Source information: This 135-nucleotide RNA from Soehngenia longivitae belongs to the Rfam family "Ribosomal protein L20 leader". The base pairs follow the family's consensus structure, which was predicted with CMfinder. On this family, see Zengel and Lindahl, Prog Nucleic Acid Res Mol Biol 1994: "Diverse mechanisms for regulating ribosomal protein synthesis in Escherichia coli".

[Rfam]
RNA sequence: UUUUUCAAGAAGAAGUUUCCGCUUCUCACCUUAUAGUAUCGUGCUCAUAAGGUUAUGUAAGAUGAUUGAUUGUACAAUACACUAUUUUUGAGUGUAUUUAAGCGGACACUUUUGUGUCCGCUAAUUUUUUUGUGG
Numbered sequence: 001u002u003u004u005u006c007a008a009g010a011a012g013a014a015g016u017u018u019c020c021g022c023u024u025c026u027c028a029c030c031u032u033a034u035a036g037u038a039u040c041g042u043g044c045u046c047a048u049a050a051g052g053u054u055a056u057g058u059a060a061g062a063u064g065a066u067u068g069a070u071u072g073u074a075c076a077a078u079a080c081a082c083u084a085u086u087u088u089u090g091a092g093u094g095u096a097u098u099u100a101a102g103c104g105g106a107c108a109c110u111u112u113u114g115u116g117u118c119c120g121c122u123a124a125u126u127u128u129u130u131u132g133u134g135g
Stems, first nucleotide, its partner, number of pairs: 011026006028053003033048002036044002101122009
Background: Rfam links the family to the GO term regulation of gene expression.